Actinobacteria sRNA Ms_IGR-7: a 120-nucleotide RNA sequence from Nocardia sp. SYP-A9097.
The family's RNA type in Rfam is small RNA.
[Rfam]
RNA sequence: UGAAAGUGUCUUCCCGAUCCGGUUCUGAUUGUGGCGUGAGAACUCCAAUCGUUCCAGCUCAGAAGGCCACUUUCGCUAUUUCACAUCACGUUACCCACCAGUUUUCAUCGGUGGAUUCAG
Numbered sequence: 001u002g003a004a005a006g007u008g009u010c011u012u013c014c015c016g017a018u019c020c021g022g023u024u025c026u027g028a029u030u031g032u033g034g035c036g037u038g039a040g041a042a043c044u045c046c047a048a049u050c051g052u053u054c055c056a057g058c059u060c061a062g063a064a065g066g067c068c069a070c071u072u073u074c075g076c077u078a079u080u081u082c083a084c085a086u087c088a089c090g091u092u093a094c095c096c097a098c099c100a101g102u103u104u105u106c107a108u109c110g111g112u113g114g115a116u117u118c119a120g
Base pairs, nucleotide, nucleotide: 002074003073004072005071006070007069008068009066010065011064012063013062016060017059019057021055022054026051027050028049029048031046033044034043101118104115105114106113107112
Taxonomically the source falls in Nocardia (Bacteria, Bacillati, Mycobacteriales, Nocardiaceae). The family has 14 seed sequences and 463 matches in Rfam 15.1.